[Rfam]
RNA sequence: CUUCCAUACUAUCUAGUAAUUCUAAUGU
Numbered sequence: 001c002u003u004c005c006a007u008a009c010u011a012u013c014u015a016g017u018a019a020u021u022c023u024a025a026u027g028u
Base pairs, nucleotide, nucleotide: 007018008017009016010015

Shown here is a 28-nucleotide RNA from Lynx canadensis, a member of the family "CRISPR RNA direct repeat element". The base pairs follow the family's consensus structure, which was predicted with WAR. The family has 3 seed sequences and 24 matches in Rfam 15.1. Gene Ontology term of the family: defense response.